Glycine riboswitch aptamer: a 112-nucleotide RNA sequence from Brevibacillus fluminis.
The base pairs follow the family's consensus structure.
Gene Ontology term of the family: glycine biosynthetic process.
RNA sequence: AUGAUGAUUGCGGGAGAGACCGGAUGAUGUGAUGAGGCCGGCACCGAAGGAGCAAGCACCCAUAAAACCCUUGGGAUGCAAUCUCUCAGGUACAAUGUACCGCAAGCGGACG
Numbered sequence: 001a002u003g004a005u006g007a008u009u010g011c012g013g014g015a016g017a018g019a020c021c022g023g024a025u026g027a028u029g030u031g032a033u034g035a036g037g038c039c040g041g042c043a044c045c046g047a048a049g050g051a052g053c054a055a056g057c058a059c060c061c062a063u064a065a066a067a068c069c070c071u072u073g074g075g076a077u078g079c080a081a082u083c084u085c086u087c088a089g090g091u092a093c094a095a096u097g098u099a100c101c102g103c104a105a106g107c108g109g110a111c112g
Stems, first nucleotide, its partner, number of pairs: 006107001008105006020041004043091003046087002050085003056079002